[Rfam]
A member of the RNA family "Vault RNA" from Sparus aurata, 111 nucleotides long. A search with the family's covariance model found it, with a score of 57 bits. Taxonomically the source falls in Sparus (Eukaryota, Vertebrata, Teleostomi, Eurypterygia). This family of RNAs are found as part of the enigmatic vault ribonucleoprotein complex. The complex consists of a major vault protein (MVP), two minor vault proteins (VPARP and TEP1), and several small untranslated RNA molecules. It has been suggested that the vault complex is involved in drug resistance. The literature on the family includes a 2009 paper in Mol Biol Evol by Stadler et al., "Evolution of Vault RNAs".

RNA sequence: GCGGAGGUUUAGCUCAGUGGUUACUUCUUAACUACCACAAGUUAUCUCCCCUCACCGGGUUCGCGUCCAGCGGUCCCCGAGGAUCUACCACGGGCGCUGUCCUCUGCUUUU
Numbered sequence: 001g002c003g004g005a006g007g008u009u010u011a012g013c014u015c016a017g018u019g020g021u022u023a024c025u026u027c028u029u030a031a032c033u034a035c036c037a038c039a040a041g042u043u044a045u046c047u048c049c050c051c052u053c054a055c056c057g058g059g060u061u062c063g064c065g066u067c068c069a070g071c072g073g074u075c076c077c078c079g080a081g082g083a084u085c086u087a088c089c090a091c092g093g094g095c096g097c098u099g100u101c102c103u104c105u106g107c108u109u110u111u
Base pairs, nucleotide, nucleotide: 002106003105004104005103006102007101012095013094014093015092017091018090019089020088026083027082028081029080